[Rfam]
RNA sequence: UUGCGCAAGUGGUGGGUUUAUCAGCAAUAUUAGCAAUCUUUCGUUGCGCUAGCAGGCGUAAGCUUUAUCUCAGCUUCAAGGCCCGGACGACAUGUCCAGCCGGCUCGCCCAAUCAGGUGAGCGGUCGCCGCCGAUCCCACCGGAUCGCCACGGCACCCGGGUUCGCACUGCCCAACCAGGCGGGCGAAGAAAAGGCGUUAUCAUCGCCACAAUGACGGACAAAAAAGGGAGGCCUGCAGGCCUCCCU
Dot-bracket structure: ((((....))))..............................(((.........)))..................((...((((((((.....))))...(.((..(((......)))..)).)..((((..(((((....)))))....))))....)))).(((.(((((......))))))))..))...((((.......)))).................((((.((((....)))).))))
RNA: Pseudomonas sRNA P24
Organism: Pseudomonas guineae